[Rfam]
RNA: tRNA
Organism: Pyrolobus fumarii
RNA sequence: GGGCCCGUCGUCUAGCCUGGUUAGGACGCCGCCCUGACGAGGCGGAGGUCCGGGGUUCAAAUCCCCGCGGGCCCA
Numbered sequence: 001g002g003g004c005c006c007g008u009c010g011u012c013u014a015g016c017c018u019g020g021u022u023a024g025g026a027c028g029c030c031g032c033c034c035u036g037a038c039g040a041g042g043c044g045g046a047g048g049u050c051c052g053g054g055g056u057u058c059a060a061a062u063c064c065c066c067g068c069g070g071g072c073c074c075a
Base pairs, nucleotide, nucleotide: 001074002073003072004071005070006069007068010027011026012025013024029045030044031043032042033041051067052066053065054064055063